[Rfam]
RNA sequence: AUCUAUGAUAUUGUCCUGUCACAGCAGUACUUUACAUAGUUUACUGCUGUAUCAGGACAUGCCCAUGGAU
Numbered sequence: 001a002u003c004u005a006u007g008a009u010a011u012u013g014u015c016c017u018g019u020c021a022c023a024g025c026a027g028u029a030c031u032u033u034a035c036a037u038a039g040u041u042u043a044c045u046g047c048u049g050u051a052u053c054a055g056g057a058c059a060u061g062c063c064c065a066u067g068g069a070u
Stems, first nucleotide, its partner, number of pairs: 003068004012059007022049008

Source information: A member of the RNA family "mir-1000 microRNA precursor family" from Laodelphax striatellus, 70 nucleotides long. It scores 77 bits against the family's covariance model. Its family is annotated with RISC complex, negative regulation of glutamate secretion, neurotransmission and miRNA-mediated post-transcriptional gene silencing in the Gene Ontology.